[Rfam]
RNA sequence: ACUCAACAUUUUGAGUUGGGUCGACGCCCACGCCAACCUGCCUACCCGGGCAAGGUGGAUCGCGAAAGCGAAUGUGGCUCCAUCCGGAGCAACCAAGCGGGAAGCG
Numbered sequence: 001a002c003u004c005a006a007c008a009u010u011u012u013g014a015g016u017u018g019g020g021u022c023g024a025c026g027c028c029c030a031c032g033c034c035a036a037c038c039u040g041c042c043u044a045c046c047c048g049g050g051c052a053a054g055g056u057g058g059a060u061c062g063c064g065a066a067a068g069c070g071a072a073u074g075u076g077g078c079u080c081c082a083u084c085c086g087g088a089g090c091a092a093c094c095a096a097g098c099g100g101g102a103a104g105c106g
Stems, first nucleotide, its partner, number of pairs: 006075005015031001017030005033058002037055003040051003045101004077090004
RNA: SAM-I/IV (S-adenosyl methionine) riboswitch aptamer
Organism: Tepidicella xavieri